This 154-nucleotide RNA sequence from Acinetobacter johnsonii belongs to the Rfam family "Pseudomonadales-1 RNA".
It is annotated as a small RNA.
The source organism's lineage runs through Bacteria, Pseudomonadati, Gammaproteobacteria, Moraxellaceae and Acinetobacter johnsonii.
RNA sequence: CCAAUGUGAUUUCGUCACAUAUUGAGUUAGCCUUAGAGCCAUAAAUUGUGGGUGACACCCCGACUAAUCAAGAUGAAAGACACAAAGCGGAUCAAUAGCUAACUUUGAGAAGUUUAUUGUGUCGAGUAGCGGUAGAUCAGUUGCCGAGCUGGUC
Numbered sequence: 001c002c003a004a005u006g007u008g009a010u011u012u013c014g015u016c017a018c019a020u021a022u023u024g025a026g027u028u029a030g031c032c033u034u035a036g037a038g039c040c041a042u043a044a045a046u047u048g049u050g051g052g053u054g055a056c057a058c059c060c061c062g063a064c065u066a067a068u069c070a071a072g073a074u075g076a077a078a079g080a081c082a083c084a085a086a087g088c089g090g091a092u093c094a095a096u097a098g099c100u101a102a103c104u105u106u107g108a109g110a111a112g113u114u115u116a117u118u119g120u121g122u123c124g125a126g127u128a129g130c131g132g133u134a135g136a137u138c139a140g141u142u143g144c145c146g147a148g149c150u151g152g153u154c
Stems, first nucleotide, its partner, number of pairs: 002024007014056004027102005046063003050059002074131002079123005085115004092108004097104001135154007